[Rfam]
Source information: This 323-nucleotide RNA from Catenisphaera adipataccumulans belongs to the Rfam family "Bacterial RNase P class B". Taxonomically the source falls in Catenisphaera (Bacteria, Bacillati, Erysipelotrichia, Erysipelotrichales). The base pairs follow the family's consensus structure, which is taken from published work. A search with the family's covariance model found it, with a score of 261 bits. Rfam's curators write: Ribonuclease P (RNase P) is a ubiquitous endoribonuclease, found in archaea, bacteria and eukarya as well as chloroplasts and mitochondria. Its best characterised activity is the generation of mature 5'-ends of tRNAs by cleaving the 5'-leader elements of precursor-tRNAs. Cellular RNase Ps are ribonucleoproteins. RNA from bacterial RNase Ps retains its catalytic activity in the absence of the protein subunit, i.e. it is a ribozyme. Its family is annotated with dimeric ribonuclease P complex, ribonuclease P activity and tRNA processing in the Gene Ontology.
RNA sequence: CCGAAAACGCAGUCGCUGGCUUUUGCCAGAGGAAAGUCCAUGCUCGCACGGUCUGCGAUGACCGUAGUGUUUGUGCCGGACGAAGUCAUAAGUCCGGGCAGCGUAAGCUGACGGCAGUUCUGAUCCUAAGGGAAACUAAGGAAGCGAACUUGAAAGUGCCACAGAGACGAGCCGGCUGUGAAAACAGCCGGGUGGAACGGGUAAACCCCGCAAGCGAGAAACCCAAAUUUGGUAGGGGAGCCGGUCGGAAUGAAUUGAAAGGAAGACUGGAUAACUUCGGUUAUAGAUAAAUGGCUGCUAGUUACAGAACAUGGCUUAUGAAU
Numbered sequence: 001c002c003g004a005a006a007a008c009g010c011a012g013u014c015g016c017u018g019g020c021u022u023u024u025g026c027c028a029g030a031g032g033a034a035a036g037u038c039c040a041u042g043c044u045c046g047c048a049c050g051g052u053c054u055g056c057g058a059u060g061a062c063c064g065u066a067g068u069g070u071u072u073g074u075g076c077c078g079g080a081c082g083a084a085g086u087c088a089u090a091a092g093u094c095c096g097g098g099c100a101g102c103g104u105a106a107g108c109u110g111a112c113g114g115c116a117g118u119u120c121u122g123a124u125c126c127u128a129a130g131g132g133a134a135a136c137u138a139a140g141g142a143a144g145c146g147a148a149c150u151u152g153a154a155a156g157u158g159c160c161a162c163a164g165a166g167a168c169g170a171g172c173c174g175g176c177u178g179u180g181a182a183a184a185c186a187g188c189c190g191g192g193u194g195g196a197a198c199g200g201g202u203a204a205a206c207c208c209c210g211c212a213a214g215c216g217a218g219a220a221a222c223c224c225a226a227a228u229u230u231g232g233u234a235g236g237g238g239a240g241c242c243g244g245u246c247g248g249a250a251u252g253a254a255u256u257g258a259a260a261g262g263a264a265g266a267c268u269g270g271a272u273a274a275c276u277u278c279g280g281u282u283a284u285a286g287a288u289a290a291a292u293g294g295c296u297g298c299u300a301g302u303u304a305c306a307g308a309a310c311a312u313g314g315c316u317u318a319u320g321a322a323u
Stems, first nucleotide, its partner, number of pairs: 004323001007319001009298006016029005034317003038314005043218005048065006071213005076097006098112001099110004113208002116150004124142003130137002156206002158202003172191008222237003241270006271284005
Dot-bracket structure: ...(..(.((((((.(((((....)))))....[[[.[[[[[(((((((((((......)))))).....(((((((((((..........))))))(((((....)))).)((.((((....(((...((....))..)))....)))).....(((((...........((((((((....))))))))........)))..))))))))))))))...(((..........)))...((((((..................))))))(((((....)))))........))))))...........]]]]]]]].)...)